[Rfam]
RNA sequence: AUGAAUCUUAAGGGAGAGAGCUAGUCAGUAUGACUAGACGCCGAAGGGGCAAGGAAGACAGAAUCUUCUUAAACUCUCAGGCACUAGGACCUUAAAGAGGAC
Numbered sequence: 001a002u003g004a005a006u007c008u009u010a011a012g013g014g015a016g017a018g019a020g021c022u023a024g025u026c027a028g029u030a031u032g033a034c035u036a037g038a039c040g041c042c043g044a045a046g047g048g049g050c051a052a053g054g055a056a057g058a059c060a061g062a063a064u065c066u067u068c069u070u071a072a073a074c075u076c077u078c079a080g081g082c083a084c085u086a087g088g089a090c091c092u093u094a095a096a097g098a099g100g101a102c
Stems, first nucleotide, its partner, number of pairs: 006097001008095006021037005040082003043078002047076003053069005
This 102-nucleotide RNA sequence from Selenihalanaerobacter shriftii belongs to the Rfam family "Glycine riboswitch aptamer". Taxonomically the source falls in Selenihalanaerobacter (Bacteria, Bacillati, Bacillota, Halanaerobiales). A search with the family's covariance model found it, with a score of 60 bits.